[Rfam]
Nucleotides: 075
Stems, first nucleotide, its partner, number of pairs: 001074007010027004029045003033041001051067005
Number, partner (000 for none) and nucleotide at each position: 001074g002073g003072a004071c005070u006069u007068u008000u009000a010027g011026c012025u013024u014000a015000a016000u017000g018000u019000u020000g021000u022000u023000a024013a025012a026011g027010u028000u029045u030044a031043c032000u033041u034000g035000u036000g037000a038000u039000a040000a041033a042000u043031g044030u045029a046000a047000g048000a049000u050000u051067u052066u053065u054064g055063g056000u057000u058000a059000a060000a061000g062000u063055c064054c065053a066052a067051a068007a069006a070005a071004g072003u073002c074001c075000a